[Rfam]
RNA sequence: UUAUAAUGAUGAAUUUUUGUUAUUUAUAUGUUUUUUCUGGCAUCUCUAAUGUUAGGGCUUUUCAGCUCGAUGAGUACAACCCUGACGACUAUCUGAUG
Numbered sequence: 001u002u003a004u005a006a007u008g009a010u011g012a013a014u015u016u017u018u019g020u021u022a023u024u025u026a027u028a029u030g031u032u033u034u035u036u037c038u039g040g041c042a043u044c045u046c047u048a049a050u051g052u053u054a055g056g057g058c059u060u061u062u063c064a065g066c067u068c069g070a071u072g073a074g075u076a077c078a079a080c081c082c083u084g085a086c087g088a089c090u091a092u093c094u095g096a097u098g
Base pairs, nucleotide, nucleotide: 056067057066058065059064
Notes
A member of the RNA family "Small nucleolar RNA snR48" from Dujonia railenensis, 98 nucleotides long.